[Rfam]
A member of the RNA family "Archaeal large subunit ribosomal RNA" from Abiotrophia defectiva, 189 nucleotides of a longer RNA. Pairs were carried over by alignment from the consensus structure, which is taken from published work. The organism belongs to Abiotrophia defectiva, within Bacteria.
RNA sequence: UGGAAUUCCGUCGGAAUCCGCCAGGACCAUCUGGCAAGGCUAAAUACUCCCUAGUGACCGAUAGUGAACCAGUACCGUGAGGGAAAGGUGAAAAGCACCCCGGGAGGGGAGUGAAAGAGUACCUGAAACCGUGUGCUUACAAGUAGUCAGAGCCCGUUAAGGGGUGAUGGCGUACCUUUUGUAGAAUGG
Numbered sequence: 001u002g003g004a005a006u007u008c009c010g011u012c013g014g015a016a017u018c019c020g021c022c023a024g025g026a027c028c029a030u031c032u033g034g035c036a037a038g039g040c041u042a043a044a045u046a047c048u049c050c051c052u053a054g055u056g057a058c059c060g061a062u063a064g065u066g067a068a069c070c071a072g073u074a075c076c077g078u079g080a081g082g083g084a085a086a087g088g089u090g091a092a093a094a095g096c097a098c099c100c101c102g103g104g105a106g107g108g109g110a111g112u113g114a115a116a117g118a119g120u121a122c123c124u125g126a127a128a129c130c131g132u133g134u135g136c137u138u139a140c141a142a143g144u145a146g147u148c149a150g151a152g153c154c155c156g157u158u159a160a161g162g163g164g165u166g167a168u169g170g171c172g173u174a175c176c177u178u179u180u181g182u183a184g185a186a187u188g189g
Stems, first nucleotide, its partner, number of pairs: 020035005075082002146171004152165004175188001177186001